The family of this 125-nucleotide sequence from Brassica carinata is "MIR9563 microRNA precursor family".
[Rfam]
RNA sequence: GGAAUAUAAGAACCCGUCUAUUAAUUUUAACUAAAAAAGCUAAGAACCGACUCUUAAAUAAGAGUUUUAAGAACCGGUUUUUAUUUUUUUUUAGUUAAAAGUUAACAGACGGAUUCUUAUAUUCU
Numbered sequence: 001g002g003a004a005u006a007u008a009a010g011a012a013c014c015c016g017u018c019u020a021u022u023a024a025u026u027u028u029a030a031c032u033a034a035a036a037a038a039g040c041u042a043a044g045a046a047c048c049g050a051c052u053c054u055u056a057a058a059u060a061a062g063a064g065u066u067u068u069a070a071g072a073a074c075c076g077g078u079u080u081u082u083a084u085u086u087u088u089u090u091u092u093a094g095u096u097a098a099a100a101g102u103u104a105a106c107a108g109a110c111g112g113a114u115u116c117u118u119a120u121a122u123u124c125u
Stems, first nucleotide, its partner, number of pairs: 001125012014112006021105005026099013041083006
The match comes from Rfam's covariance-model search (108 bits). Lineage of the source: Eukaryota > Euphyllophyta > rosids > Brassicaceae > Brassica.